The record is a 77-nucleotide RNA from Horornis vulcanius, which matches "Small nucleolar RNA SNORD79" in Rfam. Rfam's curators write: snoRNA U79 or Z22 is found in intron 7 of the gas5 gene in humans and is also present in mice. On this family, see Smith and Steitz, Mol Cell Biol 1998: "Classification of gas5 as a multi-small-nucleolar-RNA (snoRNA) host gene and a member of the 5'-terminal oligopyrimidine gene family reveals common features of snoRNA host genes". It scores 74 bits against the family's covariance model.

RNA sequence: UACUGUUCAUGAUGAAUUCUGAGCAGAUGGGAAUCUCUCUGAAAGAGACUGAGGAGAACUCUUGCACUGAAACAGUA
Numbered sequence: 001u002a003c004u005g006u007u008c009a010u011g012a013u014g015a016a017u018u019c020u021g022a023g024c025a026g027a028u029g030g031g032a033a034u035c036u037c038u039c040u041g042a043a044a045g046a047g048a049c050u051g052a053g054g055a056g057a058a059c060u061c062u063u064g065c066a067c068u069g070a071a072a073c074a075g076u077a
Stems, first nucleotide, its partner, number of pairs: 001077007